Rfam assigns this 102-nucleotide RNA sequence from Rhizobium giardinii to the family "ybhL leader". A reference for the family is Corbino et al. (2005), "Evidence for a second class of S-adenosylmethionine riboswitches and other regulatory RNA motifs in alpha-proteobacteria", Genome Biol. The base pairs follow the family's consensus structure. Rfam's curators write: This family is a putative regulatory RNA structure that is found upstream of an uncharacterized membrane protein in alpha-proteobacteria. It scores 65 bits against the family's covariance model. The organism belongs to Rhizobium, within Bacteria.
RNA sequence: AAGGCAUGCUGGAGCCCCGCAGCGGCGCCUGGGCCGAGUGGCUGGCAUCAUUCAGAUGAUGCGCCCUCGUGGCCUGACACCGUAAACUUAACCGGGGCUUAU
Numbered sequence: 001a002a003g004g005c006a007u008g009c010u011g012g013a014g015c016c017c018c019g020c021a022g023c024g025g026c027g028c029c030u031g032g033g034c035c036g037a038g039u040g041g042c043u044g045g046c047a048u049c050a051u052u053c054a055g056a057u058g059a060u061g062c063g064c065c066c067u068c069g070u071g072g073c074c075u076g077a078c079a080c081c082g083u084a085a086a087c088u089u090a091a092c093c094g095g096g097g098c099u100u101a102u
Stems, first nucleotide, its partner, number of pairs: 012100008023082003030076004034071001